[Rfam]
RNA sequence: UGGUCAAUGAUGAGAACUUUAUACUGUCUAAAGAGAUGUGAUGACUUAAAAAUCAUGCUUAAUAAGAUUAUGCUGAGGCCC
Numbered sequence: 001u002g003g004u005c006a007a008u009g010a011u012g013a014g015a016a017c018u019u020u021a022u023a024c025u026g027u028c029u030a031a032a033g034a035g036a037u038g039u040g041a042u043g044a045c046u047u048a049a050a051a052a053u054c055a056u057g058c059u060u061a062a063u064a065a066g067a068u069u070a071u072g073c074u075g076a077g078g079c080c081c
Base pairs, nucleotide, nucleotide: 002080003079004078005075006074008072009071

A member of the RNA family "Small nucleolar RNA SNORD115" from Carlito syrichta, 81 nucleotides long. Gene Ontology terms of the family: RNA processing and nucleolus. By type it is a C/D-box small nucleolar RNA. It scores 85 bits against the family's covariance model.